[Rfam]
RNA sequence: AAAGACUUGUAGUGAUAUAAGUUUGGGCGGUGAGAAGUCAGCCGAAGCCGUAGUAGUGAAGACGUCUAACGAAAGUUAGAAAGAGCGAAGGGC
Dot-bracket structure: .(.((((((((....))))))))).............((....)).(((......((.......(((..........)))....))....)))
Numbered sequence: 001a002a003a004g005a006c007u008u009g010u011a012g013u014g015a016u017a018u019a020a021g022u023u024u025g026g027g028c029g030g031u032g033a034g035a036a037g038u039c040a041g042c043c044g045a046a047g048c049c050g051u052a053g054u055a056g057u058g059a060a061g062a063c064g065u066c067u068a069a070c071g072a073a074a075g076u077u078a079g080a081a082a083g084a085g086c087g088a089a090g091g092g093c
Stems, first nucleotide, its partner, number of pairs: 002024001004023008038045002047093003056086002065080003
Overview:
Rfam assigns this 93-nucleotide RNA from Alkalibacillus haloalkaliphilus to the family "Group II catalytic intron D1-D4-1". The match comes from Rfam's covariance-model search (53 bits). NCBI's taxonomy places the organism under Bacteria, Bacillati, Bacilli, Bacillaceae, Alkalibacillus. Its family is annotated with Group II intron splicing in the Gene Ontology.